[Rfam]
RNA sequence: CCAAAGGCUCUUUUAAGAGCCACCCACAUUAUCAGUAAAAGAGUCG
Numbered sequence: 001c002c003a004a005a006g007g008c009u010c011u012u013u014u015a016a017g018a019g020c021c022a023c024c025c026a027c028a029u030u031a032u033c034a035g036u037a038a039a040a041g042a043g044u045c046g
Stems, first nucleotide, its partner, number of pairs: 006021006
RNA: Histone 3' UTR stem-loop
Organism: Mesembrinibis cayennensis